[Rfam]
Group II catalytic intron D1-D4-2: a 118-nucleotide RNA sequence from Mangrovibacterium marinum.
A search with the family's covariance model found it, with a score of 70 bits.
The literature on the family includes a 2001 paper in Trends Genet by Bonen and Vogel, "The ins and outs of group II introns".
The pairing is the family consensus, mapped onto this sequence.
Rfam describes the family as follows. Group II introns are found in rRNA, tRNA and mRNA of organelles in fungi, plants and protists, and also in mRNA in bacteria.
NCBI's taxonomy places the organism under Bacteria, Pseudomonadati, Marinilabiliales, Prolixibacteraceae, Mangrovibacterium.
RNA sequence: GGAAGAAGGCCUUCCGGCAAGGAUUUUCAGGAAUACUUGUCAAACCACUACUAUGAUGUUAUGAUGGCAACUGAGUAGCAUGAAGCGAUAGUAGAAAAGGCAGGACUACCUGUCAGGU
Numbered sequence: 001g002g003a004a005g006a007a008g009g010c011c012u013u014c015c016g017g018c019a020a021g022g023a024u025u026u027u028c029a030g031g032a033a034u035a036c037u038u039g040u041c042a043a044a045c046c047a048c049u050a051c052u053a054u055g056a057u058g059u060u061a062u063g064a065u066g067g068c069a070a071c072u073g074a075g076u077a078g079c080a081u082g083a084a085g086c087g088a089u090a091g092u093a094g095a096a097a098a099g100g101c102a103g104g105a106c107u108a109c110c111u112g113u114c115a116g117g118u
Stems, first nucleotide, its partner, number of pairs: 001015005016041006023034004046117001048094002051091004056081001058079003062074001064072001099114006